[Rfam]
RNA sequence: GGCAACAGUGAUGAGUUCUUACAGACCUGUAAUGAUUCUUGCGGAAAUGAUCGCACAGUUCAAAGAACAUUUAAGGGACUGAGUUGUU
Numbered sequence: 001g002g003c004a005a006c007a008g009u010g011a012u013g014a015g016u017u018c019u020u021a022c023a024g025a026c027c028u029g030u031a032a033u034g035a036u037u038c039u040u041g042c043g044g045a046a047a048u049g050a051u052c053g054c055a056c057a058g059u060u061c062a063a064a065g066a067a068c069a070u071u072u073a074a075g076g077g078a079c080u081g082a083g084u085u086g087u088u
Stems, first nucleotide, its partner, number of pairs: 002087005
The record is an 88-nucleotide RNA sequence from Triticum urartu, which matches "Small nucleolar RNA SNORD25" in Rfam.
NCBI's taxonomy places the organism under Eukaryota, Liliopsida, Triticodae, Triticinae, Triticum.
The family is grouped with related families in Rfam's "SNORD25 clan".